[Rfam]
RNA sequence: GGCAUUGAGUGUCGGUGACAAGCCCUGGCUGGCCGACCAGCAACCCUCGUUCCGCGGUGGGGUGCUCCAGGUGAAAGCCCGGCCCGUUAGCGAACCCGCGCGGGCAAGCGCGUUGA
Numbered sequence: 001g002g003c004a005u006u007g008a009g010u011g012u013c014g015g016u017g018a019c020a021a022g023c024c025c026u027g028g029c030u031g032g033c034c035g036a037c038c039a040g041c042a043a044c045c046c047u048c049g050u051u052c053c054g055c056g057g058u059g060g061g062g063u064g065c066u067c068c069a070g071g072u073g074a075a076a077g078c079c080c081g082g083c084c085c086g087u088u089a090g091c092g093a094a095c096c097c098g099c100g101c102g103g104g105c106a107a108g109c110g111c112g113u114u115g116a
Stems, first nucleotide, its partner, number of pairs: 001079003009038001011037006021030002039066003044062003048057001082105006090097001
The family of this 116-nucleotide sequence from Branchiibius sp. NY16-3462-2 is "SAM (S-adenosyl methionine) riboswitch aptamer". A search with the family's covariance model found it, with a score of 86 bits. Taxonomically the source falls in Branchiibius (Bacteria, Bacillati, Actinomycetota, Actinomycetes). Pairs were carried over by alignment from the consensus structure, which is taken from published work. SAM-IV is a mRNA element that regulates gene expression via direct sensing of S-adenosylmethionine (SAM or AdoMet). SAM-IV riboswitches share conserved nucleotide positions with the previously described SAM-I riboswitches sequence analysis and molecular recognition experiments suggest that SAM-I and SAM-IV riboswitches share similar ligand binding sites, but have different scaffolds.